RNA sequence: AAUGGAGUAGGGAAAAAUGCGUUAAGUGUUGGCAAGACGGAGAGUUGUUUGCCAAACGAAUGGAUUAAACAUCCAGCGGUAUUUUUCUCGCAUCUCGCCGUU
Number, nucleotide and partner (000 for none) at each position: 001a102002a101003u100004g099005g098006a000007g000008u000009a000010g089011g088012g087013a086014a085015a084016a083017a082018u081019g080020c078021g077022u076023u000024a000025a000026g057027u056028g000029u055030u054031g053032g052033c051034a050035a049036g048037a000038c000039g000040g095041a000042g093043a000044g091045u000046u000047g000048u036049u035050u034051g033052c032053c031054a030055a029056a027057c026058g000059a000060a000061u075062g074063g073064a072065u000066u000067a000068a000069a000070c000071a000072u064073c063074c062075a061076g022077c021078g020079g000080u019081a018082u017083u016084u015085u014086u013087c012088u011089c010090g000091c044092a000093u042094c000095u040096c000097g000098c005099c004100g003101u002102u001
RNA: THF (Tetrahydrofolate) riboswitch aptamer